The record is a 72-nucleotide RNA sequence from Erinaceus europaeus, which matches "Small nucleolar RNA SNORD123" in Rfam.
The family's consensus secondary structure was predicted with WAR.
A reference for the family is Yang et al. (2006), "snoSeeker: an advanced computational package for screening of guide and orphan snoRNA genes in the human genome", Nucleic Acids Res.
The family's RNA type in Rfam is C/D-box small nucleolar RNA.
It is one of the family's seed sequences.
[Rfam]
RNA sequence: GGUGAACGUGAUGAACUUUGGGGCGCUGAUUUCACGUGACUUGAAAAAACGCCAUCCAUUUCCUGAUUCACC
Dot-bracket structure: ((((((............................................................))))))
Numbered sequence: 001g002g003u004g005a006a007c008g009u010g011a012u013g014a015a016c017u018u019u020g021g022g023g024c025g026c027u028g029a030u031u032u033c034a035c036g037u038g039a040c041u042u043g044a045a046a047a048a049a050c051g052c053c054a055u056c057c058a059u060u061u062c063c064u065g066a067u068u069c070a071c072c
Stems, first nucleotide, its partner, number of pairs: 001072006